The family of this 189-nucleotide RNA sequence from Hordeum vulgare is "Small nucleolar RNA snoR77".
By type it is an H/ACA-box small nucleolar RNA.
RNA sequence: AAGCAACCUCUUUAUCUGAUUUCCGGUGGCAUUGGAGGUGUUGCGUUGCUUGGAUAGUAAAUCUUCUGCUCUUCAGAUUAGCUGAGGGGGAGGCUGUUGCUUGGAUAGUAAAUCUUCUGCUCUUCAGAUUAGCUGAGGGGGAUGCUCUGCUUCCCUCCUUGAAGCUUAUCUAGUAGUCUUAAGAACAUA
Numbered sequence: 001a002a003g004c005a006a007c008c009u010c011u012u013u014a015u016c017u018g019a020u021u022u023c024c025g026g027u028g029g030c031a032u033u034g035g036a037g038g039u040g041u042u043g044c045g046u047u048g049c050u051u052g053g054a055u056a057g058u059a060a061a062u063c064u065u066c067u068g069c070u071c072u073u074c075a076g077a078u079u080a081g082c083u084g085a086g087g088g089g090g091a092g093g094c095u096g097u098u099g100c101u102u103g104g105a106u107a108g109u110a111a112a113u114c115u116u117c118u119g120c121u122c123u124u125c126a127g128a129u130u131a132g133c134u135g136a137g138g139g140g141g142a143u144g145c146u147c148u149g150c151u152u153c154c155c156u157c158c159u160u161g162a163a164g165c166u167u168a169u170c171u172a173g174u175a176g177u178c179u180u181a182a183g184a185a186c187a188u189a
Stems, first nucleotide, its partner, number of pairs: 002042004007038002009035002013031001015029002063183003068178001070176001075171004081165003086157009